[Rfam]
RNA sequence: UGAGCGACUGUAAACAUCCUCGACUGGAAGCUGUGAAGCAGCAGAUGGGGCUUUCAGUCGGAUGUUUGCAG
Numbered sequence: 001u002g003a004g005c006g007a008c009u010g011u012a013a014a015c016a017u018c019c020u021c022g023a024c025u026g027g028a029a030g031c032u033g034u035g036a037a038g039c040a041g042c043a044g045a046u047g048g049g050g051c052u053u054u055c056a057g058u059c060g061g062a063u064g065u066u067u068g069c070a071g
Stems, first nucleotide, its partner, number of pairs: 008071012023058010
RNA: mir-30 microRNA precursor family
Organism: Taeniopygia guttata